[Rfam]
RNA sequence: GAGUUACGUUUACAUGCGAGGUUAAAGUGAAAAGCUGGAGCCGUAGCGAAAGCGAGUCUGAAUAGGGCGAAUGAGUAUGUAGAUGUAGACCCGAAACCAAGUGACCUACCCAUGUCCAGGUUGAAGGUGCGGUAAAACGCACUGGAGGACCGAACCCAUGUAUGUUGAAAAAUGCUGGGAUGAGGUGUGGGUAGCGGUGAAAUUCCAAACGAACUUGGAGAUAGCUGGUU
Numbered sequence: 001g002a003g004u005u006a007c008g009u010u011u012a013c014a015u016g017c018g019a020g021g022u023u024a025a026a027g028u029g030a031a032a033a034g035c036u037g038g039a040g041c042c043g044u045a046g047c048g049a050a051a052g053c054g055a056g057u058c059u060g061a062a063u064a065g066g067g068c069g070a071a072u073g074a075g076u077a078u079g080u081a082g083a084u085g086u087a088g089a090c091c092c093g094a095a096a097c098c099a100a101g102u103g104a105c106c107u108a109c110c111c112a113u114g115u116c117c118a119g120g121u122u123g124a125a126g127g128u129g130c131g132g133u134a135a136a137a138c139g140c141a142c143u144g145g146a147g148g149a150c151c152g153a154a155c156c157c158a159u160g161u162a163u164g165u166u167g168a169a170a171a172a173u174g175c176u177g178g179g180a181u182g183a184g185g186u187g188u189g190g191g192u193a194g195c196g197g198u199g200a201a202a203u204u205c206c207a208a209a210c211g212a213a214c215u216u217g218g219a220g221a222u223a224g225c226u227g228g229u230u
Stems, first nucleotide, its partner, number of pairs: 005087013020042004026036003046053002056068004090228002093225001097218006106194011117182001119151004126143006155179003160175004196206002
Shown here is a 230-nucleotide part of an RNA from Lacticaseibacillus brantae, a member of the family "Bacterial large subunit ribosomal RNA". The organism belongs to Lacticaseibacillus brantae, within Bacteria.